A member of the RNA family "Actinobacteria sRNA Ms_IGR-5" from Actinospica durhamensis, 183 nucleotides long. NCBI's taxonomy places the organism under Bacteria, Actinomycetota, Actinomycetes, Catenulisporales, Actinospica. The family's RNA type in Rfam is small RNA.
RNA sequence: ACACUGAAAGGAGGUGAUCCUGAGUUGAGUAGUUUCAGGACGCGUGAGGUGGCUGUCCGCUAGCCGCCCGGCCGACCGUCGUGUUGACCGGCGGUAGGCGAAUAUCAGACAGACACCCGGCCCGCAGGUUCACCGUUCGUCCACGGUGCCUCUCGGAUUCCGGUACGGCGCAGGCCGUGCCCG
Number, nucleotide and partner (000 for none) at each position: 001a000002c000003a000004c000005u000006g000007a000008a000009a000010g000011g000012a000013g057014g056015u055016g054017a000018u052019c000020c000021u000022g000023a000024g000025u000026u000027g000028a000029g000030u000031a000032g000033u000034u000035u000036c000037a000038g000039g000040a000041c000042g000043c000044g000045u000046g000047a000048g000049g000050u000051g000052g018053c000054u016055g015056u014057c013058c100059g099060c098061u097062a000063g095064c094065c000066g092067c091068c090069c000070g088071g000072c086073c000074g000075a000076c000077c000078g000079u000080c000081g000082u000083g000084u000085u000086g072087a000088c070089c000090g068091g067092c066093g000094g064095u063096a000097g061098g060099c059100g058101a000102a000103u000104a000105u000106c000107a000108g000109a000110c000111a000112g000113a000114c000115a000116c000117c000118c177119g176120g175121c174122c173123c000124g171125c170126a000127g000128g169129u168130u167131c148132a147133c146134c145135g144136u143137u000138c000139g000140u000141c000142c000143a136144c135145g134146g133147u132148g131149c000150c000151u000152c000153u000154c000155g000156g000157a000158u000159u000160c000161c000162g000163g000164u000165a000166c000167g130168g129169c128170g125171c124172a000173g122174g121175c120176c119177g118178u000179g000180c000181c000182c000183g000